[Rfam]
RNA: Small nucleolar RNA SNORD28
RNA sequence: GUCAGAUGAUUUGAAUCUGUACGCUGAUAGUCUGUGAGGCAUAACACCUUAAUAGCAUGUUAGAGUUCUGAUGGCA
Number, nucleotide and partner (000 for none) at each position: 001g075002u074003c073004a072005g000006a000007u000008g000009a000010u000011u000012u000013g000014a000015a000016u000017c000018u000019g000020u000021a000022c000023g000024c000025u000026g000027a000028u000029a000030g000031u000032c000033u000034g000035u000036g000037a000038g000039g000040c000041a000042u000043a000044a000045c000046a000047c000048c000049u000050u000051a000052a000053u000054a000055g000056c000057a000058u000059g000060u000061u000062a000063g000064a000065g000066u000067u000068c000069u000070g000071a000072u004073g003074g002075c001076a000